Description
The family of this 87-nucleotide RNA sequence from Paenalicyclobacillus macrosporangiidus is "c-di-GMP-I riboswitch aptamer". Pairs were carried over by alignment from the consensus structure, which is taken from published work. From the family's description: GEMM was predicted in a large-scale screen for bacterial structured RNA regulatory elements.
RNA sequence: AGUUAACCAAGGCAAACUAGUGGAAACGCUAGGACGCAAAAUUACGGGUCUACGGGCACAGGUGCCUAUGAUCGCCGGAUUGCCACU
Numbered sequence: 001a002g003u004u005a006a007c008c009a010a011g012g013c014a015a016a017c018u019a020g021u022g023g024a025a026a027c028g029c030u031a032g033g034a035c036g037c038a039a040a041a042u043u044a045c046g047g048g049u050c051u052a053c054g055g056g057c058a059c060a061g062g063u064g065c066c067u068a069u070g071a072u073c074g075c076c077g078g079a080u081u082g083c084c085a086c087u
Base pairs, nucleotide, nucleotide: 012037013036017032018031019030020029021028022027040081041080042079043078045077046076047075048072049071050070055066056065057064058063